[Rfam]
RNA sequence: CGUGUCGGCUGAAUCAGAGAUUGGCUGACACACUUUUAAAAACCUAACUCUUAUUAGGAGAGAUAUAUGUCUCUGAAUGCAGAAACUAAAGCAGCAAUCGUUGCAGAAUACGCGCAAGUAGAA
Numbered sequence: 001c002g003u004g005u006c007g008g009c010u011g012a013a014u015c016a017g018a019g020a021u022u023g024g025c026u027g028a029c030a031c032a033c034u035u036u037u038a039a040a041a042a043c044c045u046a047a048c049u050c051u052u053a054u055u056a057g058g059a060g061a062g063a064u065a066u067a068u069g070u071c072u073c074u075g076a077a078u079g080c081a082g083a084a085a086c087u088a089a090a091g092c093a094g095c096a097a098u099c100g101u102u103g104c105a106g107a108a109u110a111c112g113c114g115c116a117a118g119u120a121g122a123a
Base pairs, nucleotide, nucleotide: 007026008025009024010023011022012021054077055076057074058073059072060071
Ribosomal S15 leader: a 123-nucleotide RNA sequence from Vibrio tapetis. Rfam classes the family as a cis-regulatory leader. A search with the family's covariance model found it, with a score of 89 bits. Lineage of the source: Bacteria > Gammaproteobacteria > Vibrionales > Vibrionaceae > Vibrio tapetis. Pairs were carried over by alignment from the consensus structure, which is taken from published work. Rfam links the family to the GO term regulation of translation, ncRNA-mediated.